[Rfam]
Annotation: This 80-nucleotide sequence from Myotis lucifugus belongs to the Rfam family "mir-574 microRNA precursor family".

RNA sequence: AGUCCAGAGAGAGAGGCAAGGUCUGCUCCGCAGCCUCUGUGGCAGCUGUUGAUCAACCAUUGCCUCUCUCUUUCUCUCUG
Numbered sequence: 001a002g003u004c005c006a007g008a009g010a011g012a013g014a015g016g017c018a019a020g021g022u023c024u025g026c027u028c029c030g031c032a033g034c035c036u037c038u039g040u041g042g043c044a045g046c047u048g049u050u051g052a053u054c055a056a057c058c059a060u061u062g063c064c065u066c067u068c069u070c071u072u073u074c075u076c077u078c079u080g
Base pairs, nucleotide, nucleotide: 007072008071009070010069011068012067013066014065015064016063017062018061019060021058024055025054027052028051031048032047033046034045
Dot-bracket structure: ......(((((((((((((.(..((.((..((((..........))))..)).))..).)))))))))))))........
For this family Rfam cites "Patterns of known and novel small RNAs in human cervical cancer" (Lui et al., Cancer Res, 2007).